Background
The record is a 471-nucleotide RNA from Halohasta litchfieldiae, which matches "Archaeal RNase P" in Rfam. Rfam links the family to the GO terms tRNA processing, ribonuclease P activity and multimeric ribonuclease P complex. Rfam describes the family as follows. Ribonuclease P (RNase P) is a ubiquitous endoribonuclease, found in archaea, bacteria and eukarya as well as chloroplasts and mitochondria. Its best characterised activity is the generation of mature 5'-ends of tRNAs by cleaving the 5'-leader elements of precursor-tRNAs. A reference for the family is Brown (1999), "The Ribonuclease P Database", Nucleic Acids Res. The family's RNA type in Rfam is ribozyme.
RNA sequence: GGUAGAGAGAGCCCGAUUCCCGUGGCCCGGCGCACACUGACUCCAGUUCGGAGCAGUUUCGUCGGCCAUGAGGAAAGUCCCCCCACCGUUCGGACAGGUGACCGGGCACAAGCCCGGAGUCGGAGACGACUGGCUCUGAAACAGAAACGAGACCACCUGCCCCGACCAAUGAAGCGCGUGCGGCCGCCGCUGGUGGCCGACGUCGCCCGCGGCCUCGCCGCGAGCGAGCGAACCAACCCGUAAGGGAAGGGAGUUAACCCGCAGAGGGAGCGUGGUGCGUAGCACCAUGAUUAUAAUAUUGACGGGCAGGAACGGAUGGAACGGUGAAUCCUCACCGGUGCAAGUCCGCGUCAGACGGUCGGUCCCCGUCCGCAGCAGGUGGAUGGUCGACCGUCGAGGUAGUCCGAACACGACGACGGACGCUCAGCCGAAUGUCGGGUCGAAACAGAAGGGGGCUUACUCCUCUCAGCC
Numbered sequence: 001g002g003u004a005g006a007g008a009g010a011g012c013c014c015g016a017u018u019c020c021c022g023u024g025g026c027c028c029g030g031c032g033c034a035c036a037c038u039g040a041c042u043c044c045a046g047u048u049c050g051g052a053g054c055a056g057u058u059u060c061g062u063c064g065g066c067c068a069u070g071a072g073g074a075a076a077g078u079c080c081c082c083c084c085a086c087c088g089u090u091c092g093g094a095c096a097g098g099u100g101a102c103c104g105g106g107c108a109c110a111a112g113c114c115c116g117g118a119g120u121c122g123g124a125g126a127c128g129a130c131u132g133g134c135u136c137u138g139a140a141a142c143a144g145a146a147a148c149g150a151g152a153c154c155a156c157c158u159g160c161c162c163c164g165a166c167c168a169a170u171g172a173a174g175c176g177c178g179u180g181c182g183g184c185c186g187c188c189g190c191u192g193g194u195g196g197c198c199g200a201c202g203u204c205g206c207c208c209g210c211g212g213c214c215u216c217g218c219c220g221c222g223a224g225c226g227a228g229c230g231a232a233c234c235a236a237c238c239c240g241u242a243a244g245g246g247a248a249g250g251g252a253g254u255u256a257a258c259c260c261g262c263a264g265a266g267g268g269a270g271c272g273u274g275g276u277g278c279g280u281a282g283c284a285c286c287a288u289g290a291u292u293a294u295a296a297u298a299u300u301g302a303c304g305g306g307c308a309g310g311a312a313c314g315g316a317u318g319g320a321a322c323g324g325u326g327a328a329u330c331c332u333c334a335c336c337g338g339u340g341c342a343a344g345u346c347c348g349c350g351u352c353a354g355a356c357g358g359u360c361g362g363u364c365c366c367c368g369u370c371c372g373c374a375g376c377a378g379g380u381g382g383a384u385g386g387u388c389g390a391c392c393g394u395c396g397a398g399g400u401a402g403u404c405c406g407a408a409c410a411c412g413a414c415g416a417c418g419g420a421c422g423c424u425c426a427g428c429c430g431a432a433u434g435u436c437g438g439g440u441c442g443a444a445a446c447a448g449a450a451g452g453g454g455g456c457u458u459a460c461u462c463c464u465c466u467c468a469g470c471c
Stems, first nucleotide, its partner, number of pairs: 001471003005467005010461002012439006021070007075458003079455005084340004097336005102117005118131005132331002137327001139325001153315002156310007344421004